[Rfam]
RNA: Molybdenum/Tungsten riboswitch aptamer (Moco RNA motif)
RNA sequence: CUUGAAGAGCACCUCCGAGCCGGGGGACCUAAAGUCUUAGCGCUAUGGACCCGGGCCGAUAGGGUGCGUUGGGAAACCGGCGCGCCUCCCGUUGCGGAAAGGAUGGUGGGGGCAUUGUUU
Numbered sequence: 001c002u003u004g005a006a007g008a009g010c011a012c013c014u015c016c017g018a019g020c021c022g023g024g025g026g027a028c029c030u031a032a033a034g035u036c037u038u039a040g041c042g043c044u045a046u047g048g049a050c051c052c053g054g055g056c057c058g059a060u061a062g063g064g065u066g067c068g069u070u071g072g073g074a075a076a077c078c079g080g081c082g083c084g085c086c087u088c089c090c091g092u093u094g095c096g097g098a099a100a101g102g103a104u105g106g107u108g109g110g111g112g113c114a115u116u117g118u119u120u
Stems, first nucleotide, its partner, number of pairs: 003114002012105001014103003019056003023052003028048002033044003062087011088097002